RNA sequence: CCCGCAGUGUGCCCUGCGGUAGCCUAGGGAUAGUGCAGGACGGGUAACUGUUUUGUGCGAAGCUUCCUGACAAUGUACCCCCUCCUCGGAGGUGGCGUGGCCCGCGAGGGUGCGUCAGAGGCUGCGAGUGACGAUGCGGCUUAGGGG
Numbered sequence: 001c002c003c004g005c006a007g008u009g010u011g012c013c014c015u016g017c018g019g020u021a022g023c024c025u026a027g028g029g030a031u032a033g034u035g036c037a038g039g040a041c042g043g044g045u046a047a048c049u050g051u052u053u054u055g056u057g058c059g060a061a062g063c064u065u066c067c068u069g070a071c072a073a074u075g076u077a078c079c080c081c082c083u084c085c086u087c088g089g090a091g092g093u094g095g096c097g098u099g100g101c102c103c104g105c106g107a108g109g110g111u112g113c114g115u116c117a118g119a120g121g122c123u124g125c126g127a128g129u130g131a132c133g134a135u136g137c138g139g140c141u142u143a144g145g146g147g
Base pairs, nucleotide, nucleotide: 002019003018004017005016006015007014027068028067029066030065033058034057035056036055037054038053039052040051041050042049043048081092082091083090084089093117094116095115096114102109103108121140122139123138124137125136126135
This 147-nucleotide RNA from Marinobacterium marinum belongs to the Rfam family "Group II catalytic intron D1-D4-7". Rfam's curators write: Group II introns are found in rRNA, tRNA and mRNA of organelles in fungi, plants and protists, and also in mRNA in bacteria. Rfam links the family to the GO term Group II intron splicing. The organism belongs to Marinobacterium, within Bacteria.